[Rfam]
RNA: algC RNA
RNA sequence: CAAGAUAUGGCCAUUUUACGGUCACGGCUGACUGUUGCCUGAAGAAGAGGUAA
Numbered sequence: 001c002a003a004g005a006u007a008u009g010g011c012c013a014u015u016u017u018a019c020g021g022u023c024a025c026g027g028c029u030g031a032c033u034g035u036u037g038c039c040u041g042a043a044g045a046a047g048a049g050g051u052a053a
Base pairs, nucleotide, nucleotide: 009023010022011021012020